[Rfam]
RNA sequence: GUAAUUGGAUCCCUAAUUUUUUGGAAUGCUCCAAAUUC
Numbered sequence: 001g002u003a004a005u006u007g008g009a010u011c012c013c014u015a016a017u018u019u020u021u022u023g024g025a026a027u028g029c030u031c032c033a034a035a036u037u038c
Base pairs, nucleotide, nucleotide: 003018004017005016006015007014008013020035021034022033023032024031025030